[Rfam]
A member of the RNA family "Nuclear RNase P" from Microcaecilia unicolor, 326 nucleotides long.

RNA sequence: GUGGAAGGAAGCUUGGUGCUGAGGCAACCCACUGAGUGUGUUCAUCACUUCUCUACUGAGGCCUUGGGGAAGGUCUGAGACAGGAGCCACCAGCUGCCCUCACAGGACAUCACUUGACCCAAGUGAAUGAGUUCACAGCAAUGAUGGAGCCAGUUUGGACUCUCUGCAGGAGACACAGGCUGAUGAGGCUACAAAUGCCAUGUUUCAGCUGUGGAUGCAGCCCUUUCUGGCUUUGGAAAUGACUCAUGGCUGGCAUCCUUGAGUUCAAUGACACAGAUGAGAUACCAUGAAGUCUCAUAACCUAAUUCAGACUACUCUCCUUCCAC
Numbered sequence: 001g002u003g004g005a006a007g008g009a010a011g012c013u014u015g016g017u018g019c020u021g022a023g024g025c026a027a028c029c030c031a032c033u034g035a036g037u038g039u040g041u042u043c044a045u046c047a048c049u050u051c052u053c054u055a056c057u058g059a060g061g062c063c064u065u066g067g068g069g070a071a072g073g074u075c076u077g078a079g080a081c082a083g084g085a086g087c088c089a090c091c092a093g094c095u096g097c098c099c100u101c102a103c104a105g106g107a108c109a110u111c112a113c114u115u116g117a118c119c120c121a122a123g124u125g126a127a128u129g130a131g132u133u134c135a136c137a138g139c140a141a142u143g144a145u146g147g148a149g150c151c152a153g154u155u156u157g158g159a160c161u162c163u164c165u166g167c168a169g170g171a172g173a174c175a176c177a178g179g180c181u182g183a184u185g186a187g188g189c190u191a192c193a194a195a196u197g198c199c200a201u202g203u204u205u206c207a208g209c210u211g212u213g214g215a216u217g218c219a220g221c222c223c224u225u226u227c228u229g230g231c232u233u234u235g236g237a238a239a240u241g242a243c244u245c246a247u248g249g250c251u252g253g254c255a256u257c258c259u260u261g262a263g264u265u266c267a268a269u270g271a272c273a274c275a276g277a278u279g280a281g282a283u284a285c286c287a288u289g290a291a292g293u294c295u296c297a298u299a300a301c302c303u304a305a306u307u308c309a310g311a312c313u314a315c316u317c318u319c320c321u322u323c324c325a326c
Stems, first nucleotide, its partner, number of pairs: 001326004007320003012276002016272002020066005034050005075310005085251004095109002098106002110126006127247007148232006277298007
It scores 178 bits against the family's covariance model.
Rfam's curators write: Ribonuclease P (RNase P) is a ubiquitous endoribonuclease, found in archaea, bacteria and eukarya as well as chloroplasts and mitochondria. Its best characterised activity is the generation of mature 5'-ends of tRNAs by cleaving the 5'-leader elements of precursor-tRNAs.
Rfam classes the family as a ribozyme.